[Rfam]
The family of this 120-nucleotide RNA sequence from Papaver orientale is "Plastid-psbA-1 3UTR RNA". Plastid psbA-1 is a non-coding RNA (ncRNA) present in plastids. The family's consensus secondary structure was predicted with LocARNA. The sequence is in the family's curated seed alignment.
RNA sequence: UGUCGAAGCUCCAUCCACAAAUGGAUAAGACUUCCAUCUUAGUGUAUAUGAAGCGUUGAAGUUGAAGGAGCAAUACCAACCCUCUUAUUUUAUCAUAGAGGGUCGGUAUUGCUCCUUCAU
Numbered sequence: 001u002g003u004c005g006a007a008g009c010u011c012c013a014u015c016c017a018c019a020a021a022u023g024g025a026u027a028a029g030a031c032u033u034c035c036a037u038c039u040u041a042g043u044g045u046a047u048a049u050g051a052a053g054c055g056u057u058g059a060a061g062u063u064g065a066a067g068g069a070g071c072a073a074u075a076c077c078a079a080c081c082c083u084c085u086u087a088u089u090u091u092a093u094c095a096u097a098g099a100g101g102g103u104c105g106g107u108a109u110u111g112c113u114c115c116u117u118c119a120u
Stems, first nucleotide, its partner, number of pairs: 010025005064118013079103002082100004086095001
Dot-bracket structure: .........(((((......)))))......................................(((((((((((((..((.(((((........).)))).))..)))))))))))))..